Background: Shown here is a 70-nucleotide RNA from Halcyon senegalensis, a member of the family "Small nucleolar RNA SNORD73". Taxonomically the source falls in Halcyon (Eukaryota, Bilateria, Coelurosauria, Aves). For this family Rfam cites "A novel snoRNA (U73) is encoded within the introns of the human and mouse ribosomal protein S3a genes" (Rebane et al., Gene, 1998). The family's RNA type in Rfam is C/D-box small nucleolar RNA.

[Rfam]
RNA sequence: AAUGAAUGAUGACAAACUGUUUCGGUCCCAGAUGACAUGGAAUGAUUCUGUUUUCCCAACUUCUGACAUU
Numbered sequence: 001a002a003u004g005a006a007u008g009a010u011g012a013c014a015a016a017c018u019g020u021u022u023c024g025g026u027c028c029c030a031g032a033u034g035a036c037a038u039g040g041a042a043u044g045a046u047u048c049u050g051u052u053u054u055c056c057c058a059a060c061u062u063c064u065g066a067c068a069u070u
Base pairs, nucleotide, nucleotide: 001070002069003068004067